[Rfam]
Notes:
Rfam assigns this 103-nucleotide RNA sequence from Paenibacillus lutimineralis to the family "c-di-GMP-I riboswitch aptamer". The family's consensus secondary structure is taken from published work. From the family's description: GEMM was predicted in a large-scale screen for bacterial structured RNA regulatory elements.
RNA sequence: UUCAUAUCUAGGCACACUAAUCGAAAGGUUAGGUCGCAAAGCUUUGGAGUCUAAUGGUUCUGAUCAGAAUACUGAUCCGGCUAAUGACAGUCCGGCUGCAUUC
Numbered sequence: 001u002u003c004a005u006a007u008c009u010a011g012g013c014a015c016a017c018u019a020a021u022c023g024a025a026a027g028g029u030u031a032g033g034u035c036g037c038a039a040a041g042c043u044u045u046g047g048a049g050u051c052u053a054a055u056g057g058u059u060c061u062g063a064u065c066a067g068a069a070u071a072c073u074g075a076u077c078c079g080g081c082u083a084a085u086g087a088c089a090g091u092c093c094g095g096c097u098g099c100a101u102u103c
Base pairs, nucleotide, nucleotide: 012037013036017032018031019030020029021028022027040097041096042095043094046093047092048091049088050087051086056082057081058080059079